[Rfam]
Nucleotides: 069
Stems, first nucleotide, its partner, number of pairs: 001068004
Number, partner (000 for none) and nucleotide at each position: 001068u002067u003066g004065c005000a006000a007000u008000g009000a010000u011000g012000a013000c014000c015000a016000u017000c018000u019000u020000a021000g022000g023000a024000c025000a026000c027000c028000u029000u030000u031000g032000g033000a034000a035000a036000u037000a038000a039000g040000c041000a042000u043000g044000a045000a046000a047000a048000c049000a050000a051000c052000c053000c054000g055000a056000u057000c058000a059000a060000u061000c062000u063000g064000a065004g066003c067002a068001a069000c